[Rfam]
Nucleotides: 103
Stems, first nucleotide, its partner, number of pairs: 006098008020047007049082003052078002056076003063069001
Number, partner (000 for none) and nucleotide at each position: 001000a002000u003000g004000u005000u006098c007097g008096u009095c010094g011093c012092g013091g014000g015000a016000g017000a018000g019000a020047g021046c022045g023044g024043c025042c026041c027000a028000c029000c030000a031000c032000c033000a034000a035000g036000g037000u038000a039000u040000a041026g042025g043024g044023u045022c046021g047020c048000c049082g050081c051080c052078g053077a054000a055000g056076g057075c058074g059000c060000a061000a062000u063069u064000c065000g066000c067000c068000c069063g070000g071000a072000a073000u074058c075057g076056c077053u078052c079000a080051g081050g082049u083000a084000a085000c086000c087000c088000a089000u090000a091013c092012c093011g094010c095009g096008a097007c098006g099000c100000a101000u102000c103000a
Shown here is a 103-nucleotide sequence from Bordetella genomosp. 4, a member of the family "Glycine riboswitch aptamer".
It scores 57 bits against the family's covariance model.